[Rfam]
RNA sequence: CGUCCCAAGGAGCGCUGCAGCGGGCAUGUCGACAUGGCAUCACUCGUCAGGCUUGGGACGGCGGCCCGCACAGCGUGCCGUGAUGGAGCUUUUCCUCCCUGCAACGGCGCUCACCUGUG
Dot-bracket structure: .(((((((............((((..................))))......)))))))............................................................
Numbered sequence: 001c002g003u004c005c006c007a008a009g010g011a012g013c014g015c016u017g018c019a020g021c022g023g024g025c026a027u028g029u030c031g032a033c034a035u036g037g038c039a040u041c042a043c044u045c046g047u048c049a050g051g052c053u054u055g056g057g058a059c060g061g062c063g064g065c066c067c068g069c070a071c072a073g074c075g076u077g078c079c080g081u082g083a084u085g086g087a088g089c090u091u092u093u094c095c096u097c098c099c100u101g102c103a104a105c106g107g108c109g110c111u112c113a114c115c116u117g118u119g
Stems, first nucleotide, its partner, number of pairs: 002059007021046004
Description:
A member of the RNA family "SAH (S-adenosyl-L-homocysteine) riboswitch aptamer" from Diaphorobacter sp. HDW4B, 119 nucleotides long. A search with the family's covariance model found it, with a score of 53 bits.